Background: The family of this 96-nucleotide RNA from Actinomadura harenae is "Glycine riboswitch aptamer". Rfam links the family to the GO term glycine biosynthetic process. NCBI's taxonomy places the organism under Bacteria, Bacillati, Actinomycetota, Actinomycetes, Actinomadura. It scores 68 bits against the family's covariance model. This family represents the bacterial glycine riboswitch.

RNA sequence: UGACCCUGUGCGGGAGAGAUUCCACGCCGCCAGCGUGGGACGCCGAAGGGGCAAACCUCCCCGGAACCUCUCAGGCAAAAGGACCGCGCAGACGAG
Numbered sequence: 001u002g003a004c005c006c007u008g009u010g011c012g013g014g015a016g017a018g019a020u021u022c023c024a025c026g027c028c029g030c031c032a033g034c035g036u037g038g039g040a041c042g043c044c045g046a047a048g049g050g051g052c053a054a055a056c057c058u059c060c061c062c063g064g065a066a067c068c069u070c071u072c073a074g075g076c077a078a079a080a081g082g083a084c085c086g087c088g089c090a091g092a093c094g095a096g
Base pairs, nucleotide, nucleotide: 006091007090008089009088010087011086012085013084020040021039022038023037024036025035042076043075044074045072046071049070050069051068056063